[Rfam]
RNA sequence: CUGUGCCUGCAAAGGAGGCAGCCUUGUCCAUAUUUCAUGUUUUGCAGGCUGGCAGGGCAAGGUAUCCUCUUGUGAAUAGCAAUUUUGCUAAUUCAAACUUUUCCC
Number, nucleotide and partner (000 for none) at each position: 001c000002u000003g000004u000005g049006c048007c047008u046009g045010c044011a043012a000013a071014g070015g069016a000017g067018g066019c000020a000021g063022c062023c061024u060025u059026g058027u000028c057029c056030a000031u000032a000033u000034u000035u000036c000037a000038u000039g053040u052041u051042u000043u011044g010045c009046a008047g007048g006049c005050u000051g041052g040053c039054a000055g000056g029057g028058c026059a025060a024061g023062g022063u021064a000065u000066c018067c017068u000069c015070u014071u013072g000073u000074g000075a000076a000077u090078a089079g088080c087081a086082a000083u000084u000085u000086u081087g080088c079089u078090a077091a000092u000093u000094c000095a000096a000097a000098c000099u000100u000101u000102u000103c000104c000105c000
Rfam assigns this 105-nucleotide RNA sequence to the family "RT-5 RNA". Rfam's curators put it in the seed alignment. Pairs were carried over by alignment from the consensus structure, which is taken from published work.